[Rfam]
RNA: c-di-AMP riboswitch aptamer (ydaO/yuaA leader)
RNA sequence: ACCAAUAUUUUGCCGAAUUUUCUGCGGAAAAACGGGGAAACCAUUCCGGGUGAAUUAAUCCUGAUUCCGAGGGAUUAUAGGGAGCCUUCAACCGAACCCUCAGCUAACCUCGUAGGCACCGAAGGGAGAAUAA
Dot-bracket structure: ..........((((...(((........)))((((((..........(((.....(((((((........)))))))..((..........))...)))........)))))).))))...............
Numbered sequence: 001a002c003c004a005a006u007a008u009u010u011u012g013c014c015g016a017a018u019u020u021u022c023u024g025c026g027g028a029a030a031a032a033c034g035g036g037g038a039a040a041c042c043a044u045u046c047c048g049g050g051u052g053a054a055u056u057a058a059u060c061c062u063g064a065u066u067c068c069g070a071g072g073g074a075u076u077a078u079a080g081g082g083a084g085c086c087u088u089c090a091a092c093c094g095a096a097c098c099c100u101c102a103g104c105u106a107a108c109c110u111c112g113u114a115g116g117c118a119c120c121g122a123a124g125g126g127a128g129a130a131u132a133a
Stems, first nucleotide, its partner, number of pairs: 011118004018031003032113006048099003056077007080093002